RNA sequence: AGUUGAGAGUUGCAGGUCAUAGCAAAAGCACUCACAACACGGCCAUGUCAGAUUCCAAAGAAUCUGCAAAUUCUGCU
Numbered sequence: 001a002g003u004u005g006a007g008a009g010u011u012g013c014a015g016g017u018c019a020u021a022g023c024a025a026a027a028g029c030a031c032u033c034a035c036a037a038c039a040c041g042g043c044c045a046u047g048u049c050a051g052a053u054u055c056c057a058a059a060g061a062a063u064c065u066g067c068a069a070a071u072u073c074u075g076c077u
Stems, first nucleotide, its partner, number of pairs: 015044004021077004026072002028040001049066007
RNA: Mammalian CPEB3 ribozyme
Organism: Alligator mississippiensis